[Rfam]
RNA sequence: GACCCGGUCCGGGCCCCUCUGGCGCAGGCCUGUCUGGCCCCUGUGCGAUGUCGGAUCAUCAGC
Numbered sequence: 001g002a003c004c005c006g007g008u009c010c011g012g013g014c015c016c017c018u019c020u021g022g023c024g025c026a027g028g029c030c031u032g033u034c035u036g037g038c039c040c041c042u043g044u045g046c047g048a049u050g051u052c053g054g055a056u057c058a059u060c061a062g063c
Stems, first nucleotide, its partner, number of pairs: 006057007022046007
The family of this 63-nucleotide RNA sequence from Teichococcus deserti is "terC RNA". NCBI's taxonomy places the organism under Bacteria, Alphaproteobacteria, Acetobacterales, Roseomonadaceae, Roseomonas. The family's consensus secondary structure is taken from published work.